[Rfam]
Annotation
Rfam assigns this 307-nucleotide sequence from Paenibacillus macerans to the family "transfer-messenger RNA". Rfam links the family to the GO term RNA catabolic process. The literature on the family includes a 2002 paper in Nucleic Acids Res by Williams, "The tmRNA Website: invasion by an intron". Rfam's curators write: Bacterial tmRNA, also known as 10Sa RNA or SsrA, is named for its dual tRNA and mRNA-like properties. Its role is to liberate the mRNA from a stalled ribosome. It is annotated as a non-coding RNA gene.
RNA sequence: AGGGAUAGUUCGAGCUUAGGUUGCGAGUCGAGGGGAUCGGCCUCGUUAAAACGUCAAAGCCUAUAACUGGCAAACAACAAAACAACUUCGCUUUAGCUGCUUAAUAGCGCUUAGCGGUUCCUCCCUCCAUUGCCCAUGUGGUAGGGUAAGGGACUCACUUUAAGUGGGCUACGCCGGAUUCCACCGUCUGAGGAAGAAGGAAGAGAACAACCAGACUAGCUCAUCGGACGCCCGUCAGCAGGCAGAAGAAUGAGCGAAUCGCGAAUAUGUUGACUACACUCGUAGAAGCUUAAGUGCCGAUGUUUCU
Numbered sequence: 001a002g003g004g005a006u007a008g009u010u011c012g013a014g015c016u017u018a019g020g021u022u023g024c025g026a027g028u029c030g031a032g033g034g035g036a037u038c039g040g041c042c043u044c045g046u047u048a049a050a051a052c053g054u055c056a057a058a059g060c061c062u063a064u065a066a067c068u069g070g071c072a073a074a075c076a077a078c079a080a081a082a083c084a085a086c087u088u089c090g091c092u093u094u095a096g097c098u099g100c101u102u103a104a105u106a107g108c109g110c111u112u113a114g115c116g117g118u119u120c121c122u123c124c125c126u127c128c129a130u131u132g133c134c135c136a137u138g139u140g141g142u143a144g145g146g147u148a149a150g151g152g153a154c155u156c157a158c159u160u161u162a163a164g165u166g167g168g169c170u171a172c173g174c175c176g177g178a179u180u181c182c183a184c185c186g187u188c189u190g191a192g193g194a195a196g197a198a199g200g201a202a203g204a205g206a207a208c209a210a211c212c213a214g215a216c217u218a219g220c221u222c223a224u225c226g227g228a229c230g231c232c233c234g235u236c237a238g239c240a241g242g243c244a245g246a247a248g249a250a251u252g253a254g255c256g257a258a259u260c261g262c263g264a265a266u267a268u269g270u271u272g273a274c275u276a277c278a279c280u281c282g283u284a285g286a287a288g289c290u291u292a293a294g295u296g297c298c299g300a301u302g303u304u305u306c307u
Base pairs, nucleotide, nucleotide: 001307002306003305004304005303006302007301009299012297014295015294016293017292018291019290020289021288022287024282025281026280027279028278029045030044031043032042033041035055036054037053093114094113095112096111098109099108100107101106117154118153119152120151121150122149123146124145125144126143127141128140129139130138132169133168134167135166136165137164174200175199179195180194181193182192186216187215188214189213190212217257219255220254221253222252223251224250231245234274235273236272237271240268242266